[Rfam]
RNA sequence: AGAUCGAAAAAGCCGAGUUCCGCAGAUCGGAAACGGGGGAACCAAGUUUUUGGGGUGAAUGGCUGUCCAUGUGGCAGUCUAGGGCGUCCUUUCGACCGAACCCUUCAGCUAACCUCGUAGGCUCACGAGAGGAGCAGU
Numbered sequence: 001a002g003a004u005c006g007a008a009a010a011a012g013c014c015g016a017g018u019u020c021c022g023c024a025g026a027u028c029g030g031a032a033a034c035g036g037g038g039g040a041a042c043c044a045a046g047u048u049u050u051u052g053g054g055g056u057g058a059a060u061g062g063c064u065g066u067c068c069a070u071g072u073g074g075c076a077g078u079c080u081a082g083g084g085c086g087u088c089c090u091u092u093c094g095a096c097c098g099a100a101c102c103c104u105u106c107a108g109c110u111a112a113c114c115u116c117g118u119a120g121g122c123u124c125a126c127g128a129g130a131g132g133a134g135c136a137g138u
Stems, first nucleotide, its partner, number of pairs: 011123004018032005033118006043052002053103003061079004082097002085094001

A member of the RNA family "c-di-AMP riboswitch aptamer (ydaO/yuaA leader)" from Brevibacillus panacihumi, 138 nucleotides long. Lineage of the source: Bacteria > Bacillati > Bacillota > Brevibacillus > Brevibacillus panacihumi. It scores 90 bits against the family's covariance model.